Shown here is a 212-nucleotide RNA from Paenirhodobacter enshiensis, a member of the family "permuted transfer-messenger RNA". Rfam links the family to the GO term RNA catabolic process. Rfam classes the family as a non-coding RNA gene. It scores 133 bits against the family's covariance model.

RNA sequence: GCUCGUAGACCGACCAUUGACUACCUUUGCAGGACGGGGGUGCGAUACCCCCCGCCUCCACCAAUCAACGGAUCAUUGCCGUGGCUUGGGGGCGAAACAGGAUCGACUGGGGGGGAAAGGUGACUCGUGCGGGCCGGUGAGCUACCACCGUUAUCGGUGCAAGCAUGAUAGUUGCCAAUGACAACCGUGCUCCGGUGGCUCUGGCUGCGUAA
Numbered sequence: 001g002c003u004c005g006u007a008g009a010c011c012g013a014c015c016a017u018u019g020a021c022u023a024c025c026u027u028u029g030c031a032g033g034a035c036g037g038g039g040g041u042g043c044g045a046u047a048c049c050c051c052c053c054g055c056c057u058c059c060a061c062c063a064a065u066c067a068a069c070g071g072a073u074c075a076u077u078g079c080c081g082u083g084g085c086u087u088g089g090g091g092g093c094g095a096a097a098c099a100g101g102a103u104c105g106a107c108u109g110g111g112g113g114g115g116a117a118a119g120g121u122g123a124c125u126c127g128u129g130c131g132g133g134c135c136g137g138u139g140a141g142c143u144a145c146c147a148c149c150g151u152u153a154u155c156g157g158u159g160c161a162a163g164c165a166u167g168a169u170a171g172u173u174g175c176c177a178a179u180g181a182c183a184a185c186c187g188u189g190c191u192c193c194g195g196u197g198g199c200u201c202u203g204g205c206u207g208c209g210u211a212a
Base pairs, nucleotide, nucleotide: 001134002133003132004131005130015122016121017120026112027111028110030109031108032107036052037051038050039049040048053094054093055092056091057090058089059088135150136149137148138147
Annotation:
A reference for the family is Williams and Bartel (1996), "Phylogenetic analysis of tmRNA secondary structure", RNA. The base pairs follow the family's consensus structure, which is taken from published work.